[Rfam]
RNA sequence: ACAAUGUAGAGUUUGAUCCUGGCUCAGGACGAACGCUGGCGGCGUGCCUAAUGCAUGCAAGUCGAACGCAGCAGGCGUGCCUGGCUGCGUGGCGAACGGCUGAGGAACACGUGGGUGACCUGCCCCGGAGUGGGGGAUACCCCGUCGAAAGACGGGACAAUCCCGCAUACGCUCGACGGAGGAAAGCCGCAAGGCGCUCUGGGAGGGGCCUGCGGCCCAUCAGGUAGUUGGUGUGGUAACGGCGCACCAAGCCAAUGACGGGUACCCGGUCUGAGAGGACGACCGGGCAGACUGGGACUGAGACACGGCCCAGACUCCUACGGGAGGCAGCAGCAAGGAAUUUUCCCCAAUGGGCGCAAGCCUGAGGGAGCAACGCCGCGUGGAGGACGACGGCCUUCGGGUUGUAAACUCCUUUCGGGUGGGACGAUGCUGACGGUACCACCAGAAGCAGCCCCGGCUAACUCUGUGCCAGCAGCCGCGGUAAGACAGAGGGGGCAAGCGUUGUCCGGAGUUACUG
Numbered sequence: 001a002c003a004a005u006g007u008a009g010a011g012u013u014u015g016a017u018c019c020u021g022g023c024u025c026a027g028g029a030c031g032a033a034c035g036c037u038g039g040c041g042g043c044g045u046g047c048c049u050a051a052u053g054c055a056u057g058c059a060a061g062u063c064g065a066a067c068g069c070a071g072c073a074g075g076c077g078u079g080c081c082u083g084g085c086u087g088c089g090u091g092g093c094g095a096a097c098g099g100c101u102g103a104g105g106a107a108c109a110c111g112u113g114g115g116u117g118a119c120c121u122g123c124c125c126c127g128g129a130g131u132g133g134g135g136g137a138u139a140c141c142c143c144g145u146c147g148a149a150a151g152a153c154g155g156g157a158c159a160a161u162c163c164c165g166c167a168u169a170c171g172c173u174c175g176a177c178g179g180a181g182g183a184a185a186g187c188c189g190c191a192a193g194g195c196g197c198u199c200u201g202g203g204a205g206g207g208g209c210c211u212g213c214g215g216c217c218c219a220u221c222a223g224g225u226a227g228u229u230g231g232u233g234u235g236g237u238a239a240c241g242g243c244g245c246a247c248c249a250a251g252c253c254a255a256u257g258a259c260g261g262g263u264a265c266c267c268g269g270u271c272u273g274a275g276a277g278g279a280c281g282a283c284c285g286g287g288c289a290g291a292c293u294g295g296g297a298c299u300g301a302g303a304c305a306c307g308g309c310c311c312a313g314a315c316u317c318c319u320a321c322g323g324g325a326g327g328c329a330g331c332a333g334c335a336a337g338g339a340a341u342u343u344u345c346c347c348c349a350a351u352g353g354g355c356g357c358a359a360g361c362c363u364g365a366g367g368g369a370g371c372a373a374c375g376c377c378g379c380g381u382g383g384a385g386g387a388c389g390a391c392g393g394c395c396u397u398c399g400g401g402u403u404g405u406a407a408a409c410u411c412c413u414u415u416c417g418g419g420u421g422g423g424a425c426g427a428u429g430c431u432g433a434c435g436g437u438a439c440c441a442c443c444a445g446a447a448g449c450a451g452c453c454c455c456g457g458c459u460a461a462c463u464c465u466g467u468g469c470c471a472g473c474a475g476c477c478g479c480g481g482u483a484a485g486a487c488a489g490a491g492g493g494g495g496c497a498a499g500c501g502u503u504g505u506c507c508g509g510a511g512u513u514a515c516u517g
Stems, first nucleotide, its partner, number of pairs: 009025005027507004032503006039379006045372002047337001052335003056332003061093003066090006072083004100290003110214007119207002124203007132166001134164002141156006172181003186195003216262003223253003228250008265287004269280004292313005315326004343369001345368003351364005382412004392403004416448001418443005426434001451496005462491005472479002
RNA: Bacterial small subunit ribosomal RNA, nucleotides 1 to 517
Organism: Chloroflexus aurantiacus